RNA sequence: CUUGACCGAGCCCAGCCACAGCGGCCGUGUGGCGUCGCGGUCCCGGCCGUAGGUCGCCAGCAGCGCCUGCGCCUC
Numbered sequence: 001c002u003u004g005a006c007c008g009a010g011c012c013c014a015g016c017c018a019c020a021g022c023g024g025c026c027g028u029g030u031g032g033c034g035u036c037g038c039g040g041u042c043c044c045g046g047c048c049g050u051a052g053g054u055c056g057c058c059a060g061c062a063g064c065g066c067c068u069g070c071g072c073c074u075c
Stems, first nucleotide, its partner, number of pairs: 015025003032070002038065002043060001045058001047056001049054001